[Rfam]
RNA: SAM (S-adenosyl methionine) riboswitch aptamer
Organism: Candidatus Planktophila vernalis
RNA sequence: GGUCAUGAGUUCUAGUGCAUAGCCCCGGCUUACUAGACGGCAACCCUCCACCACGGUGGGGUGCUCCGGGUGAAGACCAGAUCGACUAGCACAACGCAGUCGAUAAGCGUGGAAC
Number, nucleotide and partner (000 for none) at each position: 001g078002g077003u076004c075005a000006u000007g000008a000009g038010u000011u037012c036013u035014a034015g033016u032017g000018c000019a000020u000021a030022g029023c000024c000025c000026c000027g000028g000029c022030u021031u000032a016033c015034u014035a013036g012037a011038c009039g065040g064041c063042a000043a000044c061045c060046c059047u000048c056049c055050a000051c000052c000053a000054c000055g049056g048057u000058g000059g046060g045061g044062u000063g041064c040065u039066c000067c000068g000069g000070g000071u000072g000073a000074a000075g004076a003077c002078c001079a000080g000081a104082u103083c102084g101085a100086c099087u098088a000089g000090c000091a000092c000093a000094a000095c000096g000097c000098a087099g086100u085101c084102g083103a082104u081105a000106a000107g000108c000109g000110u000111g000112g000113a000114a000115c000